[Rfam]
Shown here is a 100-nucleotide sequence from Thermincola carboxydiphila, a member of the family "Glycine riboswitch aptamer". It scores 42 bits against the family's covariance model. Gene Ontology term of the family: glycine biosynthetic process. NCBI's taxonomy places the organism under Bacteria, Eubacteriales, Thermincolaceae, Thermincola, Thermincola carboxydiphila.
RNA sequence: AUGAAUGUUACAGGAAAAGGAUUGUUGCAAUCCGCCGAAGGGGCAAGGGCUUAAAACUCCCAUUUAAGUCCAAAUCUCUCAGGUAUACUGAAAAGUAUGA
Numbered sequence: 001a002u003g004a005a006u007g008u009u010a011c012a013g014g015a016a017a018a019g020g021a022u023u024g025u026u027g028c029a030a031u032c033c034g035c036c037g038a039a040g041g042g043g044c045a046a047g048g049g050c051u052u053a054a055a056a057c058u059c060c061c062a063u064u065u066a067a068g069u070c071c072a073a074a075u076c077u078c079u080c081a082g083g084u085a086u087a088c089u090g091a092a093a094a095g096u097a098u099g100a
Stems, first nucleotide, its partner, number of pairs: 006095001008093002011090003020032004034084003037080002041078003047071009
Background:
Rfam's curators write: This family represents the bacterial glycine riboswitch.